[Rfam]
RNA sequence: UUUUAGUCGUUUACUAGUUAUUAAUCUUUCCAAAUUAUAAACAGAGUCAUCCAGUCAUCUGGAUUUGGAGUGGCUCCUGUCCACUCUGUUUGACGCCUCCCUGUUAAAGACUUCGAGCCGCGGUAACGCGGCUCUUUUUUU
Numbered sequence: 001u002u003u004u005a006g007u008c009g010u011u012u013a014c015u016a017g018u019u020a021u022u023a024a025u026c027u028u029u030c031c032a033a034a035u036u037a038u039a040a041a042c043a044g045a046g047u048c049a050u051c052c053a054g055u056c057a058u059c060u061g062g063a064u065u066u067g068g069a070g071u072g073g074c075u076c077c078u079g080u081c082c083a084c085u086c087u088g089u090u091u092g093a094c095g096c097c098u099c100c101c102u103g104u105u106a107a108a109g110a111c112u113u114c115g116a117g118c119c120g121c122g123g124u125a126a127c128g129c130g131g132c133u134c135u136u137u138u139u140u141u
Stems, first nucleotide, its partner, number of pairs: 001046004007016001022037004027032001050063004068086006092105004115134008
Shown here is a 141-nucleotide RNA sequence from Roseibium sp. TrichSKD4, a member of the family "Alphaproteobacterial sRNA BjrC1505".
By type it is a small RNA.
The source organism's lineage runs through Bacteria, Pseudomonadota, Alphaproteobacteria, Hyphomicrobiales and Roseibium.
The pairing is the family consensus, mapped onto this sequence.